This 168-nucleotide sequence belongs to the Rfam family "RAGATH-9 RNA". For this family Rfam cites "New classes of self-cleaving ribozymes revealed by comparative genomics analysis" (Weinberg et al., Nat Chem Biol, 2015). Rfam's curators put it in the seed alignment. It is annotated as a small RNA.
[Rfam]
RNA sequence: GCAGUCAACCCAAGCUACUAUUUACCAACCAAAACCCUAAUGGAAGCUUAGAAAUAAGCAAGAGUACAAUGGACUAUACAACGGUCAACCAGGUAUUGUUACCUAGGUCAGGUGAAGGAAAGGGGUUGCCUAUGAAUAAGGAAUACGAAUAAAUAGGAUAGUAGUACU
Numbered sequence: 001g002c003a004g005u006c007a008a009c010c011c012a013a014g015c016u017a018c019u020a021u022u023u024a025c026c027a028a029c030c031a032a033a034a035c036c037c038u039a040a041u042g043g044a045a046g047c048u049u050a051g052a053a054a055u056a057a058g059c060a061a062g063a064g065u066a067c068a069a070u071g072g073a074c075u076a077u078a079c080a081a082c083g084g085u086c087a088a089c090c091a092g093g094u095a096u097u098g099u100u101a102c103c104u105a106g107g108u109c110a111g112g113u114g115a116a117g118g119a120a121a122g123g124g125g126u127u128g129c130c131u132a133u134g135a136a137u138a139a140g141g142a143a144u145a146c147g148a149a150u151a152a153a154u155a156g157g158a159u160a161g162u163a164g165u166a167c168u
Base pairs, nucleotide, nucleotide: 012168014165015164016163017162018161019160020159026128027127028126029125030124041068042067046059047058048057049056050055072086073085074084075083088108089107090106091104092103093102094101129157130156131155132154133153